[Rfam]
RNA sequence: ACACGGGAAAGGAGGUGGUCCGAAGAAUGAGUUCUUUCAGGACGCGUGAGGUGGCUGCCCGCUAGCAGCCCAUCAGCAACGCUCGGGGUGGAGCCACUCCGAGAAGGCUGCUGGUGAAUCCGAAGCAGUCACCCGACCCGCAGGCGAUCCGGCCUUCACGUCCGCCGGAGCCGGGCCCCACCAGGGGCUCGACGCCUGCGGGUCGCUGCAU
Numbered sequence: 001a002c003a004c005g006g007g008a009a010a011g012g013a014g015g016u017g018g019u020c021c022g023a024a025g026a027a028u029g030a031g032u033u034c035u036u037u038c039a040g041g042a043c044g045c046g047u048g049a050g051g052u053g054g055c056u057g058c059c060c061g062c063u064a065g066c067a068g069c070c071c072a073u074c075a076g077c078a079a080c081g082c083u084c085g086g087g088g089u090g091g092a093g094c095c096a097c098u099c100c101g102a103g104a105a106g107g108c109u110g111c112u113g114g115u116g117a118a119u120c121c122g123a124a125g126c127a128g129u130c131a132c133c134c135g136a137c138c139c140g141c142a143g144g145c146g147a148u149c150c151g152g153c154c155u156u157c158a159c160g161u162c163c164g165c166c167g168g169a170g171c172c173g174g175g176c177c178c179c180a181c182c183a184g185g186g187g188c189u190c191g192a193c194g195c196c197u198g199c200g201g202g203u204c205g206c207u208g209c210a211u
Base pairs, nucleotide, nucleotide: 014059015058016057017056018055019054060116061115062114063113064112065111066110068108069107070106073102074101134205135204136203137202138201139200140199141198142197143196144195145194146193148169149168150167151166152165153164

The record is a 211-nucleotide RNA from Nocardioides agri, which matches "Actinobacteria sRNA Ms_IGR-5" in Rfam. On this family, see Li et al., RNA 2013: "Identification of small RNAs in Mycobacterium smegmatis using heterologous Hfq". The source organism's lineage runs through Bacteria, Actinomycetes, Propionibacteriales, Nocardioidaceae and Nocardioides. By type it is a small RNA. The match comes from Rfam's covariance-model search (119 bits). The base pairs follow the family's consensus structure.